[Rfam]
RNA sequence: AUCUUUGUGCACGGGUAUUACGCUUAUCAGUGAGGAUCCUUUCCGAGAUGGCGUUAUUGCUAGUUGAAAACUACAACCCUGACCGCUCCGACUCAUGCUUUUGCGUGUUUCGGGAAUCUUUGGAAAAAAAUCCAGCAUUUU
Dot-bracket structure: ...................(((((.(((.....(((.....)))..))))))))................................(((((..(((((....)))))..)))))............((((.......))))
Numbered sequence: 001a002u003c004u005u006u007g008u009g010c011a012c013g014g015g016u017a018u019u020a021c022g023c024u025u026a027u028c029a030g031u032g033a034g035g036a037u038c039c040u041u042u043c044c045g046a047g048a049u050g051g052c053g054u055u056a057u058u059g060c061u062a063g064u065u066g067a068a069a070a071c072u073a074c075a076a077c078c079c080u081g082a083c084c085g086c087u088c089c090g091a092c093u094c095a096u097g098c099u100u101u102u103g104c105g106u107g108u109u110u111c112g113g114g115a116a117u118c119u120u121u122g123g124a125a126a127a128a129a130a131u132c133c134a135g136c137a138u139u140u141u
Stems, first nucleotide, its partner, number of pairs: 020054005026049003034044003087114005094107005127141004
Annotation: Shown here is a 141-nucleotide sequence from Schizosaccharomyces japonicus, a member of the family "U4 spliceosomal RNA". The sequence is in the family's curated seed alignment. Pairs were carried over by alignment from the consensus structure, which is taken from published work. Taxonomically the source falls in Schizosaccharomyces japonicus (Eukaryota, Opisthokonta, Ascomycota, Schizosaccharomycetales). By type it is a spliceosomal small nuclear RNA.